[Rfam]
RNA sequence: UCUUUCCGGGGCAGGAAUGCCCUGGCCUCAUUGAAGC
Numbered sequence: 001u002c003u004u005u006c007c008g009g010g011g012c013a014g015g016a017a018u019g020c021c022c023u024g025g026c027c028u029c030a031u032u033g034a035a036g037c
Stems, first nucleotide, its partner, number of pairs: 006025007
Description: Rfam assigns this 37-nucleotide RNA sequence from Roseospira marina to the family "CRISPR RNA direct repeat element". Its family is annotated with defense response in the Gene Ontology. Lineage of the source: Bacteria > Pseudomonadota > Rhodospirillales > Rhodospirillaceae > Roseospira.